This 97-nucleotide RNA from Comamonas testosteroni belongs to the Rfam family "SAH (S-adenosyl-L-homocysteine) riboswitch aptamer". Lineage of the source: Bacteria > Pseudomonadati > Pseudomonadota > Comamonadaceae > Comamonas testosteroni.
[Rfam]
RNA sequence: CCAUCCGAGGAGCGUUGCAGCGUUCCCCAGCCAGCCAUGAGCUGGCCUGCGCGGGGCGUGAGGCUCGGAUUUCAUCCCGCAACGACGCUCGCCCACG
Numbered sequence: 001c002c003a004u005c006c007g008a009g010g011a012g013c014g015u016u017g018c019a020g021c022g023u024u025c026c027c028c029a030g031c032c033a034g035c036c037a038u039g040a041g042c043u044g045g046c047c048u049g050c051g052c053g054g055g056g057c058g059u060g061a062g063g064c065u066c067g068g069a070u071u072u073c074a075u076c077c078c079g080c081a082a083c084g085a086c087g088c089u090c091g092c093c094c095a096c097g
Base pairs, nucleotide, nucleotide: 003070004069005068006067007066008065021058022057023056024055025054026053

For this family Rfam cites "Riboswitches that sense S-adenosylhomocysteine and activate genes involved in coenzyme recycling" (Wang et al., Mol Cell, 2008).